[Rfam]
About this RNA:
Rfam assigns this 75-nucleotide RNA sequence from Alligator sinensis to the family "Mammalian CPEB3 ribozyme". Pairs were carried over by alignment from the consensus structure, which is taken from published work. It scores 40 bits against the family's covariance model.
RNA sequence: ACAUGUAGUCUAGGCCAUAGCAGAAGUGCUCAUAGCAUGGCCCUGUCAGGCUCUAACAAAUCUGCAAAUUCCGCU
Numbered sequence: 001a002c003a004u005g006u007a008g009u010c011u012a013g014g015c016c017a018u019a020g021c022a023g024a025a026g027u028g029c030u031c032a033u034a035g036c037a038u039g040g041c042c043c044u045g046u047c048a049g050g051c052u053c054u055a056a057c058a059a060a061u062c063u064g065c066a067a068a069u070u071c072c073g074c075u
Stems, first nucleotide, its partner, number of pairs: 013042004019075003023071003026038003047064004052059001